RNA sequence: CUAUGGCUUUGGACUGUGAGGUGACUCUUGGUGUGUGAUGGCUUUUCAGCAAGGUCCUCCUCACAGUAGCUAUA
Numbered sequence: 001c002u003a004u005g006g007c008u009u010u011g012g013a014c015u016g017u018g019a020g021g022u023g024a025c026u027c028u029u030g031g032u033g034u035g036u037g038a039u040g041g042c043u044u045u046u047c048a049g050c051a052a053g054g055u056c057c058u059c060c061u062c063a064c065a066g067u068a069g070c071u072a073u074a
Base pairs, nucleotide, nucleotide: 002074003073004072005071006070007069008068013067014066015065016064017063018062019061020060021059023056024055025054027053028052029051030050032048033047

mir-679 microRNA precursor family: a 74-nucleotide sequence from Mus musculus. The source organism's lineage runs through Eukaryota, Chordata, Craniata, Murinae and Mus. Pairs were carried over by alignment from the consensus structure, which was predicted with RNAalifold. Rfam's curators put it in the seed alignment. Gene Ontology terms of the family: RISC complex, miRNA-mediated post-transcriptional gene silencing and cellular response to leukemia inhibitory factor.